[Rfam]
RNA sequence: CCAAAGGCCCUUUUCAGGGCCACCCAUUACUUACAAAAGAGCUUUAG
Numbered sequence: 001c002c003a004a005a006g007g008c009c010c011u012u013u014u015c016a017g018g019g020c021c022a023c024c025c026a027u028u029a030c031u032u033a034c035a036a037a038a039g040a041g042c043u044u045u046a047g
Stems, first nucleotide, its partner, number of pairs: 006021006
Rfam assigns this 47-nucleotide RNA sequence from Owenia fusiformis to the family "Histone 3' UTR stem-loop". The family's RNA type in Rfam is cis-regulatory element. Gene Ontology term of the family: mRNA 3'-end processing by stem-loop binding and cleavage. Taxonomically the source falls in Owenia (Eukaryota, Opisthokonta, Protostomia, Annelida). Rfam's curators write: The mRNAs of metazoan histone genes lack a poly-A tail. 3' end processing occurs at a site between a highly conserved stem-loop (modelled by this family) and a purine rich region around 20 nts downstream (the histone downstream element, or HDE). The stem-loop is bound by a 31 kDa stem-loop binding protein (SLBP - also termed the histone hairpin binding protein, or HBP).